RNA sequence: AGCUUGAUGAUGAUUGUCUCUCAUGAUUGCUUGCUAAAAGCAAAGUGAUCCAUCAUUUCACCGACACUGAAAGCA
Numbered sequence: 001a002g003c004u005u006g007a008u009g010a011u012g013a014u015u016g017u018c019u020c021u022c023a024u025g026a027u028u029g030c031u032u033g034c035u036a037a038a039a040g041c042a043a044a045g046u047g048a049u050c051c052a053u054c055a056u057u058u059c060a061c062c063g064a065c066a067c068u069g070a071a072a073g074c075a
Stems, first nucleotide, its partner, number of pairs: 002074004
Dot-bracket structure: .((((.................................................................)))).
Shown here is a 75-nucleotide sequence from Hemiprocne comata, a member of the family "Small nucleolar RNA SNORD102". It scores 52 bits against the family's covariance model. Rfam classes the family as a C/D-box small nucleolar RNA. On this family, see Vitali et al., Nucleic Acids Res 2003: "Identification of 13 novel human modification guide RNAs".